[Rfam]
RNA sequence: GCGAGAUGCCCUUUCGCCUCGAGUUGAUCGAUCCCUUGACAAGAUCAAUCAUCCCAGGUCAGAAGGGCAUCUCGUCUCUCGCCACCGAACCGUUACCCAAGAUCAUCGGUGGAUUGGG
Numbered sequence: 001g002c003g004a005g006a007u008g009c010c011c012u013u014u015c016g017c018c019u020c021g022a023g024u025u026g027a028u029c030g031a032u033c034c035c036u037u038g039a040c041a042a043g044a045u046c047a048a049u050c051a052u053c054c055c056a057g058g059u060c061a062g063a064a065g066g067g068c069a070u071c072u073c074g075u076c077u078c079u080c081g082c083c084a085c086c087g088a089a090c091c092g093u094u095a096c097c098c099a100a101g102a103u104c105a106u107c108g109g110u111g112g113a114u115u116g117g118g
Base pairs, nucleotide, nucleotide: 002074003073004072005071006070007069008068009067010066011065012064013063016060019057021055023053025051026050027049028048030046032044033043098116099115100114103112104111105110

About this RNA: Actinobacteria sRNA Ms_IGR-7: a 118-nucleotide RNA sequence from Saccharopolyspora sp. ASAGF58. The pairing is the family consensus, mapped onto this sequence. The match comes from Rfam's covariance-model search (57 bits). A reference for the family is Li et al. (2013), "Identification of small RNAs in Mycobacterium smegmatis using heterologous Hfq", RNA.